Shown here is an 84-nucleotide RNA from Pongo abelii, a member of the family "mir-548 microRNA precursor family". The base pairs follow the family's consensus structure, which was predicted with WAR.
[Rfam]
RNA sequence: UAUUAGGUUGGGGCAAAAGUGAUUGCGGUUUUUGCCAUUGCUUUUAAUGGCAAAAACUGCAAUCACAUUUGCCCCAACCUAAUA
Number, nucleotide and partner (000 for none) at each position: 001u084002a083003u082004u081005a080006g079007g078008u077009u076010g075011g074012g073013g072014c071015a070016a069017a068018a000019g066020u065021g064022a063023u062024u061025g060026c059027g058028g057029u056030u055031u054032u053033u052034g051035c050036c049037a048038u047039u046040g045041c000042u000043u000044u000045u040046a039047a038048u037049g036050g035051c034052a033053a032054a031055a030056a029057c028058u027059g026060c025061a024062a023063u022064c021065a020066c019067a000068u017069u016070u015071g014072c013073c012074c011075c010076a009077a008078c007079c006080u005081a004082a003083u002084a001

The family has 11 seed sequences and 3,009 matches in Rfam 15.1. Its family is annotated with miRNA-mediated post-transcriptional gene silencing and RISC complex in the Gene Ontology. NCBI's taxonomy places the organism under Eukaryota, Metazoa, Deuterostomia, Euarchontoglires, Pongo.